Overview: Rfam assigns this 223-nucleotide sequence from Bactrocera dorsalis to the family "U11 spliceosomal RNA".
[Rfam]
RNA sequence: AAAAAGGGCGCUCGUCUUGCACGAUACUUCCAUUCGGGGUUCGAAGCCCUGCGUGCAGACGCAUUGCAGUGUCCACGUUCAACUUUAAUAAAUGAUGAGGCGAAUCGCUUCUAUUUUAUUCGAACGUUAUGGAUGCUCCAGUGGGGUAUGGCUUUGCAUAUCCAGUGCAUAAUUUUUGUAAUAUGGGAUACGAGCAGCCAAAGUGCAUUGCUUUUACUUUCGA
Numbered sequence: 001a002a003a004a005a006g007g008g009c010g011c012u013c014g015u016c017u018u019g020c021a022c023g024a025u026a027c028u029u030c031c032a033u034u035c036g037g038g039g040u041u042c043g044a045a046g047c048c049c050u051g052c053g054u055g056c057a058g059a060c061g062c063a064u065u066g067c068a069g070u071g072u073c074c075a076c077g078u079u080c081a082a083c084u085u086u087a088a089u090a091a092a093u094g095a096u097g098a099g100g101c102g103a104a105u106c107g108c109u110u111c112u113a114u115u116u117u118a119u120u121c122g123a124a125c126g127u128u129a130u131g132g133a134u135g136c137u138c139c140a141g142u143g144g145g146g147u148a149u150g151g152c153u154u155u156g157c158a159u160a161u162c163c164a165g166u167g168c169a170u171a172a173u174u175u176u177u178g179u180a181a182u183a184u185g186g187g188a189u190a191c192g193a194g195c196a197g198c199c200a201a202a203g204u205g206c207a208u209u210g211c212u213u214u215u216a217c218u219u220u221c222g223a
Base pairs, nucleotide, nucleotide: 008168009167010166011165012164013061014060015059016058017057062143063142064141065140066139068137069136070135071134072133073132074131075130144163145162146161147160148159149158150157189223191222192221193220194219196218197217